A member of the RNA family "mir-14 microRNA precursor family" from Tribolium castaneum, 61 nucleotides long.
The organism belongs to Tribolium, within Eukaryota.
Rfam's curators put it in the seed alignment.
[Rfam]
RNA sequence: AACAGGGGAGCGGAUUGGACUUACUUUUUUUCAAACAGUCAGUCUUUUUCUCUCUCCUAUU
Numbered sequence: 001a002a003c004a005g006g007g008g009a010g011c012g013g014a015u016u017g018g019a020c021u022u023a024c025u026u027u028u029u030u031u032c033a034a035a036c037a038g039u040c041a042g043u044c045u046u047u048u049u050c051u052c053u054c055u056c057c058u059a060u061u
Stems, first nucleotide, its partner, number of pairs: 001061002004058005010052001012050002017045005023039003027035001